[Rfam]
RNA sequence: AGUAAUAGAAUAGGUGACUCAAGGGUGGUCGGCUCACUCUCCUAUGAAAGGGGGUGAUGCCAAUGACAGUAUUCGAGGCAUUAAUGUUUGCGGUAACUUUUGCGACAUUAAUCGUAUUAAUACUUUCAUUUAACCAGAAAAAAAAAUAACCCAUCCUUGAGUUAACGGCUCGAGGGAUGGGUAAUAAUGCCAUUCAGAAGUCGAAGCCCUUGUAGGGAACCUCUGUUACUUCGACCGAAGGAUGCUACAACAUCAUUCG
Numbered sequence: 001a002g003u004a005a006u007a008g009a010a011u012a013g014g015u016g017a018c019u020c021a022a023g024g025g026u027g028g029u030c031g032g033c034u035c036a037c038u039c040u041c042c043u044a045u046g047a048a049a050g051g052g053g054g055u056g057a058u059g060c061c062a063a064u065g066a067c068a069g070u071a072u073u074c075g076a077g078g079c080a081u082u083a084a085u086g087u088u089u090g091c092g093g094u095a096a097c098u099u100u101u102g103c104g105a106c107a108u109u110a111a112u113c114g115u116a117u118u119a120a121u122a123c124u125u126u127c128a129u130u131u132a133a134c135c136a137g138a139a140a141a142a143a144a145a146a147u148a149a150c151c152c153a154u155c156c157u158u159g160a161g162u163u164a165a166c167g168g169c170u171c172g173a174g175g176g177a178u179g180g181g182u183a184a185u186a187a188u189g190c191c192a193u194u195c196a197g198a199a200g201u202c203g204a205a206g207c208c209c210u211u212g213u214a215g216g217g218a219a220c221c222u223c224u225g226u227u228a229c230u231u232c233g234a235c236c237g238a239a240g241g242a243u244g245c246u247a248c249a250a251c252a253u254c255a256u257u258c259g
Stems, first nucleotide, its partner, number of pairs: 001230005007224003011204001013202003018161008027151003034057003039054005065127002068124004079092001101119002171189002207217002236259004241254004

BsrG: a 259-nucleotide RNA sequence from Psychrobacillus glaciei.
Taxonomically the source falls in Psychrobacillus (Bacteria, Bacillati, Caryophanales, Bacillaceae).
Rfam describes the family as follows. bsrE, bsrG and bsrH pair through intermolecular interactions with antisense sRNAs. They form type I toxin/antitoxin system that includes an mRNA encoding for a short, toxic peptide (bsrE, bsrG and bsrH) and an antitoxin that is comprised of an antisense RNA. bsrG encodes a 39-amino-acid toxin, and the 180 nucleotide antisense sRNA called SR4 acts as the antitoxin (they overlap by 123 nucleotides). SR4 interaction with the 3'UTR of bsrG RNA promotes bsrG degradation and inhibits its translation.
A search with the family's covariance model found it, with a score of 108 bits.
Gene Ontology terms of the family: toxin activity and autolysis.
The family's RNA type in Rfam is small RNA.